[Rfam]
RNA sequence: CGGGGGACGCCGUCGAGCCGGUCAUGGCGACCGGAUCGGGGACCCACAGGCAGCACUGGGGUGUAGCGCGGACGACAACCAGCCGUCGCGCAGGGCGAUCUCCCGCCCGAACCCGUCAGCUAACCCGGUAGGCGGCUUCUGGAUGAGAA
Numbered sequence: 001c002g003g004g005g006g007a008c009g010c011c012g013u014c015g016a017g018c019c020g021g022u023c024a025u026g027g028c029g030a031c032c033g034g035a036u037c038g039g040g041g042a043c044c045c046a047c048a049g050g051c052a053g054c055a056c057u058g059g060g061g062u063g064u065a066g067c068g069c070g071g072a073c074g075a076c077a078a079c080c081a082g083c084c085g086u087c088g089c090g091c092a093g094g095g096c097g098a099u100c101u102c103c104c105g106c107c108c109g110a111a112c113c114c115g116u117c118a119g120c121u122a123a124c125c126c127g128g129u130a131g132g133c134g135g136c137u138u139c140u141g142g143a144u145g146a147g148a149a
Base pairs, nucleotide, nucleotide: 008134009133010132011131018034019033020032021031022030035129036128037127038126039125040124045058046057059114060113061112067090068089069088070087093108094107095106096105
Description
A member of the RNA family "c-di-AMP riboswitch aptamer (ydaO/yuaA leader)" from Blastococcus sp. CT_GayMR16, 149 nucleotides long. It scores 60 bits against the family's covariance model.